[Rfam]
RNA: Mammalian CPEB3 ribozyme
RNA sequence: CUCACUUCACGGUAGGCCACAGCGAAAAUGCUCAUGGCAUAGCCAUGUCAGAUUCUAACAAAUCUGUGAAUUCUUUU
Numbered sequence: 001c002u003c004a005c006u007u008c009a010c011g012g013u014a015g016g017c018c019a020c021a022g023c024g025a026a027a028a029u030g031c032u033c034a035u036g037g038c039a040u041a042g043c044c045a046u047g048u049c050a051g052a053u054u055c056u057a058a059c060a061a062a063u064c065u066g067u068g069a070a071u072u073c074u075u076u077u
Stems, first nucleotide, its partner, number of pairs: 013045001015044003021077002024074001026072002028040003049066006